RNA sequence: AACUUAUGAAGAAAGGUGGAGGGACAGGCCCUAUGAAACCUUGGCAACCUGCCAAUCCAAUUAUUUUGGAAAGGAGAAGGUGCCAAAUCCGAUUCAUCAGCUGAGGCUGAAGGAAGAGAUAAGUA
Numbered sequence: 001a002a003c004u005u006a007u008g009a010a011g012a013a014a015g016g017u018g019g020a021g022g023g024a025c026a027g028g029c030c031c032u033a034u035g036a037a038a039c040c041u042u043g044g045c046a047a048c049c050u051g052c053c054a055a056u057c058c059a060a061u062u063a064u065u066u067u068g069g070a071a072a073g074g075a076g077a078a079g080g081u082g083c084c085a086a087a088u089c090c091g092a093u094u095c096a097u098c099a100g101c102u103g104a105g106g107c108u109g110a111a112g113g114a115a116g117a118g119a120u121a122a123g124u125a
Stems, first nucleotide, its partner, number of pairs: 002124006013042005021031003027090002043084004048080002050076001052074002088117001093114003097110004

Shown here is a 125-nucleotide RNA sequence from Fluviicola taffensis, a member of the family "SAM riboswitch aptamer (S box leader)". The literature on the family includes a 2016 paper in Nucleic Acids Res by Huang et al., "A critical base pair in k-turns determines the conformational class adopted, and correlates with biological function". Gene Ontology term of the family: regulation of gene expression.